[Rfam]
Nucleotides: 085
Base pairs, nucleotide, nucleotide: 002084003083004082005081006080009078010077011076012075017070018069019068020067021066022065023064026062027061028060029059030058031057032056033055034054035053036052037051
Number, partner (000 for none) and nucleotide at each position: 001000c002084u003083g004082c005081c006080g007000c008000u009078g010077u011076g012075u013000u014000c015000u016000a017070u018069g019068g020067c021066u022065u023064u024000u025000u026062a027061u028060u029059c030058c031057u032056a033055c034054g035053u036052g037051a038000u039000g040000g041000u042000a043000g044000a045000u046000g047000g048000a049000g050000c051037u052036c053035a054034u055033g056032u057031a058030g059029g060028g061027g062026u063000a064023g065022a066021a067020g068019c069018c070017a071000c072000u073000a074000c075012a076011c077010a078009c079000a080006c081005g082004g083003u084002g085000a